Annotation: Rfam assigns this 100-nucleotide RNA from Filibacter tadaridae to the family "pan motif". Rfam classes the family as a cis-regulatory element. A search with the family's covariance model found it, with a score of 63 bits.

RNA sequence: AGGGCGAUAUCCAUUUAGAAUCGCACCUAUUUUAGAACGACACCAAUUGCAUACUGCUACAUGAUCUGCCUUGAUCUUAAAAAAAGACAGGGACGGAGGA
Number, nucleotide and partner (000 for none) at each position: 001a028002g027003g026004g024005c023006g022007a021008u020009a000010u019011c018012c000013a000014u000015u000016u000017a000018g011019a010020a008021u007022c006023g005024c004025a000026c003027c002028u001029a000030u000031u000032u000033u000034a000035g000036a000037a000038c000039g000040a000041c000042a000043c000044c000045a000046a000047u000048u000049g000050c000051a000052u000053a000054c000055u000056g000057c000058u000059a000060c000061a000062u000063g000064a000065u000066c096067u095068g094069c092070c091071u090072u089073g088074a000075u087076c086077u085078u000079a000080a000081a000082a000083a000084a000085a077086g076087a075088c073089a072090g071091g070092g069093a000094c068095g067096g066097a000098g000099g000100a000